[Rfam]
Nucleotides: 137
Base pairs, nucleotide, nucleotide: 004068005067006066008063009062010061011060012059025054026053027052028051029050030049031048036045037044079130080129081128082127083126087121089119090118091117093115094114095113096112097111098110
Number, partner (000 for none) and nucleotide at each position: 001000a002000c003000u004068g005067g006066a007000a008063g009062c010061u011060g012059c013000c014000g015000g016000a017000a018000a019000c020000a021000a022000c023000c024000a025054u026053g027052u028051g029050g030049a031048c032000a033000a034000a035000u036045g037044a038000a039000a040000u041000g042000u043000c044037u045036u046000u047000u048031g049030u050029c051028u052027g053026c054025a055000u056000u057000c058000u059012g060011c061010a062009g063008c064000c065000u066006u067005c068004c069000u070000a071000u072000a073000a074000a075000a076000a077000u078000u079130g080129g081128a082127g083126g084000u085000c086000u087121c088000u089119g090118u091117c092000u093115g094114g095113c096112u097111u098110a099000a100000a101000g102000c103000a104000g105000c106000u107000g108000g109000c110098u111097a112096a113095g114094c115093c116000u117091g118090a119089u120000c121087g122000u123000u124000c125000c126083c127082c128081u129080c130079c131000a132000u133000a134000c135000a136000a137000u